[Rfam]
RNA sequence: AAAAAGGGUCAGUUGGCUAAUUAUGCCACGCUCAUCCUUGUUGGUGAGUGCUGUAUGGCUAUCAAGACAUAUGGCUGACGUAAUUUUUGUGAAAUUAUAGGGUUGGCUCGCCAAGCCGACCCUCCAU
Numbered sequence: 001a002a003a004a005a006g007g008g009u010c011a012g013u014u015g016g017c018u019a020a021u022u023a024u025g026c027c028a029c030g031c032u033c034a035u036c037c038u039u040g041u042u043g044g045u046g047a048g049u050g051c052u053g054u055a056u057g058g059c060u061a062u063c064a065a066g067a068c069a070u071a072u073g074g075c076u077g078a079c080g081u082a083a084u085u086u087u088u089g090u091g092a093a094a095u096u097a098u099a100g101g102g103u104u105g106g107c108u109c110g111c112c113a114a115g116c117c118g119a120c121c122c123u124c125c126a127u
Base pairs, nucleotide, nucleotide: 008079009078010077011076012075014028015027016026017025029050030049031048032047033046034045035044036043051074052073053072054071055070056069057068099123100122101121102120103119104118105117106116107115108114
Rfam assigns this 127-nucleotide RNA from Trifolium subterraneum to the family "U11 spliceosomal RNA". It is annotated as a spliceosomal small nuclear RNA.